[Rfam]
RNA sequence: AGCUGUUCCCCUCUGGAGGUUUAUACCUUCACAAUUAAUGGGCCACGGUUCUCCGUCGGCCCUUUUUUUUCGCGAAA
Dot-bracket structure: .......(.((...)).).....................(((((((((....)))).)))))...............
RNA: Makes More Granules Regulator RNA (mmgR)